[Rfam]
RNA sequence: GGCAGGUAUAUAUAUGCUAGCAAGCAAGCUAGAGAUAACGAGGUUAGUUCAAUCAGGGAGGAUGAGGCCCUGUUCUAGCAGUUGAGGUGUGAAAACCAAGCUAGAACAGGGCCUCAUCCUCCCUGAUUGAACUAACCUCGUUAUCUCUAGCUUGCUUGCUAGCAUAUAUAUACCUGCC
Numbered sequence: 001g002g003c004a005g006g007u008a009u010a011u012a013u014a015u016g017c018u019a020g021c022a023a024g025c026a027a028g029c030u031a032g033a034g035a036u037a038a039c040g041a042g043g044u045u046a047g048u049u050c051a052a053u054c055a056g057g058g059a060g061g062a063u064g065a066g067g068c069c070c071u072g073u074u075c076u077a078g079c080a081g082u083u084g085a086g087g088u089g090u091g092a093a094a095a096c097c098a099a100g101c102u103a104g105a106a107c108a109g110g111g112c113c114u115c116a117u118c119c120u121c122c123c124u125g126a127u128u129g130a131a132c133u134a135a136c137c138u139c140g141u142u143a144u145c146u147c148u149a150g151c152u153u154g155c156u157u158g159c160u161a162g163c164a165u166a167u168a169u170a171u172a173c174c175u176g177c178c
Stems, first nucleotide, its partner, number of pairs: 001178007009170007017162003021158008030149004035144005041138008051128002054125002057122002061118003067112011084101001
This 178-nucleotide sequence from Chelonoidis abingdonii belongs to the Rfam family "MIR807 microRNA precursor family". The match comes from Rfam's covariance-model search (113 bits). Pairs were carried over by alignment from the consensus structure, which was predicted with WAR. For this family Rfam cites "Rice embryogenic calli express a unique set of microRNAs, suggesting regulatory roles of microRNAs in plant post-embryogenic development" (Luo et al., FEBS Lett, 2006).